[Rfam]
Rfam assigns this 403-nucleotide part of an RNA from Methanobrevibacter smithii to the family "Archaeal large subunit ribosomal RNA". The sequence is in the family's curated seed alignment. Pairs were carried over by alignment from the consensus structure, which is taken from published work.

RNA sequence: AGUAGUAGCAGCAAAGUGAGGUGAGAAUCCUUACCGCCGGAGGGGCUAGGGUUCCUUGGCAAUGUUCGUCAGCCAAGGGUUAGUCGAUCCUAAGGUCAGUCAUAAGUUGAGCUGGUCGAAAGGGAAGCAGGUUAAUAUUCCUGUACAUAGUAAAUUUGCGGUGACGUUGAGGGCUAAUUUCUGACACUUCGAGAUAUGUUUUGUAGGAUUGUCGUCCUAUUUACGUGUUUAAGCCUGGGGAGAGGUGUAAUAGCGAGAACCAGGUGUAGGCAUUAUGAGCUGGUCGUUUUUGUACUGGUUUAACUGAUUCAUGGAGUCCUUGAAAAGGGAGUUAGUUUUGUAUUUUACUAUUUCGUACCGAGAUCCGUCACAGGUGCCCCUAGCUGAGUAGGCUAAGGCGUUU
Numbered sequence: 001a002g003u004a005g006u007a008g009c010a011g012c013a014a015a016g017u018g019a020g021g022u023g024a025g026a027a028u029c030c031u032u033a034c035c036g037c038c039g040g041a042g043g044g045g046c047u048a049g050g051g052u053u054c055c056u057u058g059g060c061a062a063u064g065u066u067c068g069u070c071a072g073c074c075a076a077g078g079g080u081u082a083g084u085c086g087a088u089c090c091u092a093a094g095g096u097c098a099g100u101c102a103u104a105a106g107u108u109g110a111g112c113u114g115g116u117c118g119a120a121a122g123g124g125a126a127g128c129a130g131g132u133u134a135a136u137a138u139u140c141c142u143g144u145a146c147a148u149a150g151u152a153a154a155u156u157u158g159c160g161g162u163g164a165c166g167u168u169g170a171g172g173g174c175u176a177a178u179u180u181c182u183g184a185c186a187c188u189u190c191g192a193g194a195u196a197u198g199u200u201u202u203g204u205a206g207g208a209u210u211g212u213c214g215u216c217c218u219a220u221u222u223a224c225g226u227g228u229u230u231a232a233g234c235c236u237g238g239g240g241a242g243a244g245g246u247g248u249a250a251u252a253g254c255g256a257g258a259a260c261c262a263g264g265u266g267u268a269g270g271c272a273u274u275a276u277g278a279g280c281u282g283g284u285c286g287u288u289u290u291u292g293u294a295c296u297g298g299u300u301u302a303a304c305u306g307a308u309u310c311a312u313g314g315a316g317u318c319c320u321u322g323a324a325a326a327g328g329g330a331g332u333u334a335g336u337u338u339u340g341u342a343u344u345u346u347a348c349u350a351u352u353u354c355g356u357a358c359c360g361a362g363a364u365c366c367g368u369c370a371c372a373g374g375u376g377c378c379c380c381u382a383g384c385u386g387a388g389u390a391g392g393c394u395a396a397g398g399c400g401u402u403u
Stems, first nucleotide, its partner, number of pairs: 016034006035400004043379004049359002054078006063071002085355003089123002094117006100110003127144005147351008180329003186317006193310002198304003203220005225273004234264005244254001246252001365374002381395004